[Rfam]
RNA sequence: UUCCGGUUGAUCCUGCCGGAGGCCACUGCUAUGGGGGUCCGACUAAGCCAUGCGAGUCAAGGGGGCGUCCCUUCUGGGACGCCACCGGCGGACGGCUCAGCAACACGUCGGUAACCUACCCUCGGGAGGGGGAUAACCCCGGGAAACUGGGGCUAAUCCCCCAUAGGCCUGGGGUACUGGAAGGUCCCCAGGCCGAAAGGGAGCCGUAAGGCUCCGCCCGAGGAUGGGCCGGCGGCCGAUUAGGUAGUUGGUGGGGUAACGGCCCACCAAGCCGAAGAUCGGUACGGGCCGUGAGAGCGGGAGCCCGGAGAUGGACACUGAGACACGGGUCCAGGCCCUACGGGGCGCAGCAGGCGCGAAACCUCCGCAAUGCGGGAAACCGCGACGGGGGGACCCCCAGUGCCGUGCCUCUGGCACGGCUUUUCCGGAGUGUAAAAAGCUCCGGGAAUAAGGGCUGGGCAAGGCCGGUGGCAGCCGCCGCGGUAAUACCGGCGGCCCGAGUGGUGGCCACUAUUAUUG
Numbered sequence: 001u002u003c004c005g006g007u008u009g010a011u012c013c014u015g016c017c018g019g020a021g022g023c024c025a026c027u028g029c030u031a032u033g034g035g036g037g038u039c040c041g042a043c044u045a046a047g048c049c050a051u052g053c054g055a056g057u058c059a060a061g062g063g064g065g066c067g068u069c070c071c072u073u074c075u076g077g078g079a080c081g082c083c084a085c086c087g088g089c090g091g092a093c094g095g096c097u098c099a100g101c102a103a104c105a106c107g108u109c110g111g112u113a114a115c116c117u118a119c120c121c122u123c124g125g126g127a128g129g130g131g132g133a134u135a136a137c138c139c140c141g142g143g144a145a146a147c148u149g150g151g152g153c154u155a156a157u158c159c160c161c162c163a164u165a166g167g168c169c170u171g172g173g174g175u176a177c178u179g180g181a182a183g184g185u186c187c188c189c190a191g192g193c194c195g196a197a198a199g200g201g202a203g204c205c206g207u208a209a210g211g212c213u214c215c216g217c218c219c220g221a222g223g224a225u226g227g228g229c230c231g232g233c234g235g236c237c238g239a240u241u242a243g244g245u246a247g248u249u250g251g252u253g254g255g256g257u258a259a260c261g262g263c264c265c266a267c268c269a270a271g272c273c274g275a276a277g278a279u280c281g282g283u284a285c286g287g288g289c290c291g292u293g294a295g296a297g298c299g300g301g302a303g304c305c306c307g308g309a310g311a312u313g314g315a316c317a318c319u320g321a322g323a324c325a326c327g328g329g330u331c332c333a334g335g336c337c338c339u340a341c342g343g344g345g346c347g348c349a350g351c352a353g354g355c356g357c358g359a360a361a362c363c364u365c366c367g368c369a370a371u372g373c374g375g376g377a378a379a380c381c382g383c384g385a386c387g388g389g390g391g392g393a394c395c396c397c398c399a400g401u402g403c404c405g406u407g408c409c410u411c412u413g414g415c416a417c418g419g420c421u422u423u424u425c426c427g428g429a430g431u432g433u434a435a436a437a438a439g440c441u442c443c444g445g446g447a448a449u450a451a452g453g454g455c456u457g458g459g460c461a462a463g464g465c466c467g468g469u470g471g472c473a474g475c476c477g478c479c480g481c482g483g484u485a486a487u488a489c490c491g492g493c494g495g496c497c498c499g500a501g502u503g504g505u506g507g508c509c510a511c512u513a514u515u516a517u518u519g
Stems, first nucleotide, its partner, number of pairs: 003019005021509010032399009041357001047355003051352003056089003061086002068079004096310003106234007115227002120223007128162004137152006167193008176185002200215006236282003243273003248270008285307004289300004312333005335346004363389001365388003371384005402420008425445007452498006465492004474481002
The record is a 519-nucleotide part of an RNA from Thermococcales archaeon T17a-60, which matches "Archaeal small subunit ribosomal RNA" in Rfam.
NCBI's taxonomy places the organism under Archaea, Methanobacteriati, Methanobacteriota, Thermococci, Thermococcales.